A member of the RNA family "THF (Tetrahydrofolate) riboswitch aptamer" from Clostridium sp. CAG:169, 105 nucleotides long. For this family Rfam cites "A disconnect between high-affinity binding and efficient regulation by antifolates and purines in the tetrahydrofolate riboswitch" (Trausch and Batey, Chem Biol, 2014). Tetrahydrofolate (THF) riboswitch was first reported for Ames et al. as an RNA motif in 5' untranslated (5'-UTR)regions of folate transport and biosynthesis genes in Firmicutes genomes. Taxonomically the source falls in Clostridium (Bacteria, Bacillati, Eubacteriales, Clostridiaceae).
[Rfam]
RNA sequence: AGCAGAGUAGACAAACAGGCGUUAAGUGUUCGGCAAACGGGGAGUUGUUGCUGGGACGAAAAAUCCGAAACAGGAUUUGCGGUCUGUCUGUCGCAUCCCGCUGUU
Numbered sequence: 001a002g003c004a005g006a007g008u009a010g011a012c013a014a015a016c017a018g019g020c021g022u023u024a025a026g027u028g029u030u031c032g033g034c035a036a037a038c039g040g041g042g043a044g045u046u047g048u049u050g051c052u053g054g055g056a057c058g059a060a061a062a063a064u065c066c067g068a069a070a071c072a073g074g075a076u077u078u079g080c081g082g083u084c085u086g087u088c089u090g091u092c093g094c095a096u097c098c099c100g101c102u103g104u105u
Base pairs, nucleotide, nucleotide: 001105002104003103004102005101010092011091012090013089015087016086017085018084019083020081021080022079026057027056029055030054031053032052033051034050035049036048040098041097042096044094061078062077063076064075065074066073